[Rfam]
RNA: 6S-Flavo RNA
RNA sequence: ACUCAACGCGAAUUAAUUAAAAAGAGUGAGUCCAAGCCCUAGAGCGUGCCCUAAUCUUUUGGGAUUUUCGAAUGCUUGGUUAGCUUUAAUCUUGUAUAAAUGGAGUUU
Numbered sequence: 001a002c003u004c005a006a007c008g009c010g011a012a013u014u015a016a017u018u019a020a021a022a023a024g025a026g027u028g029a030g031u032c033c034a035a036g037c038c039c040u041a042g043a044g045c046g047u048g049c050c051c052u053a054a055u056c057u058u059u060u061g062g063g064a065u066u067u068u069c070g071a072a073u074g075c076u077u078g079g080u081u082a083g084c085u086u087u088a089a090u091c092u093u094g095u096a097u098a099a100a101u102g103g104a105g106u107u108u
Base pairs, nucleotide, nucleotide: 023087024086025085026084027083033078034077035076036075037074042069043068044067049063050062051061